This 72-nucleotide RNA from Arsenophonus sp. ENCA belongs to the Rfam family "tRNA". Lineage of the source: Bacteria > Pseudomonadati > Enterobacterales > Morganellaceae > Arsenophonus. Rfam classes the family as a transfer RNA. Gene Ontology term of the family: triplet codon-amino acid adaptor activity.
[Rfam]
RNA sequence: GGGCUGUUAGCUUAACGAUAGAGCAGAGGGCUUUUAGUCCAUCGGUUGCGGGUUCGAGUCCUGCACAGCCCA
Numbered sequence: 001g002g003g004c005u006g007u008u009a010g011c012u013u014a015a016c017g018a019u020a021g022a023g024c025a026g027a028g029g030g031c032u033u034u035u036a037g038u039c040c041a042u043c044g045g046u047u048g049c050g051g052g053u054u055c056g057a058g059u060c061c062u063g064c065a066c067a068g069c070c071c072a
Base pairs, nucleotide, nucleotide: 001071002070003069004068005067006066007065010024011023012022013021026042028040029039030038048064049063050062051061052060